[Rfam]
Rfam assigns this 81-nucleotide RNA sequence from Eleutherodactylus coqui to the family "Small nucleolar RNA SNORD86". Its family is annotated with RNA processing and nucleolus in the Gene Ontology. A reference for the family is Filippini et al. (2001), "U86, a novel snoRNA with an unprecedented gene organization in yeast", Biochem Biophys Res Commun. From the family's description: U86 belongs to the C/D family of snoRNAs. It is the human orthologue of Xenopus laevis U86 and has no identified RNA target. The family's RNA type in Rfam is C/D-box small nucleolar RNA. Rfam 15.1 lists 274 matches to the family in 139 species. Lineage of the source: Eukaryota > Metazoa > Bilateria > Gnathostomata > Eleutherodactylus.

RNA sequence: AGCCAAUCAGAGGCAGGUCUGACUCACACCCAUUCAUGAAUUCACCAAUGGGUGUGAUUCAGACCUGCCCUCUGAUUGGCU
Numbered sequence: 001a002g003c004c005a006a007u008c009a010g011a012g013g014c015a016g017g018u019c020u021g022a023c024u025c026a027c028a029c030c031c032a033u034u035c036a037u038g039a040a041u042u043c044a045c046c047a048a049u050g051g052g053u054g055u056g057a058u059u060c061a062g063a064c065c066u067g068c069c070c071u072c073u074g075a076u077u078g079g080c081u
Stems, first nucleotide, its partner, number of pairs: 001081006010072002012069011024057001026055004035050002037047002
Dot-bracket structure: ((((((...(((((((((((((.(.((((.....((((.......)).)).)))).).))))))))))).))...))))))